[Rfam]
Nucleotides: 064
Base pairs, nucleotide, nucleotide: 002064003063010053011052012051013050014049020042021041022040023039024038
Number, partner (000 for none) and nucleotide at each position: 001000g002064c003063a004000u005000a006000u007000g008000a009000u010053g011052a012051a013050g014049c015000a016000a017000a018000u019000g020042a021041g022040u023039a024038u025000g026000a027000a028000u029000g030000a031000a032000g033000u034000c035000a036000u037000g038024a039023u040022a041021c042020u043000g044000u045000a046000a047000a048000u049014g050013c051012u052011u053010u054000c055000u056000a057000a058000a059000a060000a061000u062000a063003u064002g
Shown here is a 64-nucleotide sequence from Castor canadensis, a member of the family "Small nucleolar RNA Z39". NCBI's taxonomy places the organism under Eukaryota, Craniata, Gnathostomata, Mammalia, Castor. For this family Rfam cites "The high diversity of snoRNAs in plants: identification and comparative study of 120 snoRNA genes from Oryza sativa" (Chen et al., Nucleic Acids Res, 2003).